Background: Pyrrolysine insertion sequence mttB: a 100-nucleotide RNA sequence from Natronospirillum operosum. The family's consensus secondary structure was predicted with CMfinder. Rfam classes the family as a cis-regulatory element. The family has 23 seed sequences and 416 matches in Rfam 15.1.
RNA sequence: CUGACAGCGUCCAAGAUUCCCGAUGCGCAGGCGGCGACGGAAAGCGCCAAUACGCUGUUGCCGACCACACUGGCCGGGGUGAACUUUGUGCUGCACGCUG
Numbered sequence: 001c002u003g004a005c006a007g008c009g010u011c012c013a014a015g016a017u018u019c020c021c022g023a024u025g026c027g028c029a030g031g032c033g034g035c036g037a038c039g040g041a042a043a044g045c046g047c048c049a050a051u052a053c054g055c056u057g058u059u060g061c062c063g064a065c066c067a068c069a070c071u072g073g074c075c076g077g078g079g080u081g082a083a084c085u086u087u088g089u090g091c092u093g094c095a096c097g098c099u100g
Stems, first nucleotide, its partner, number of pairs: 025032001033062003077098001079096002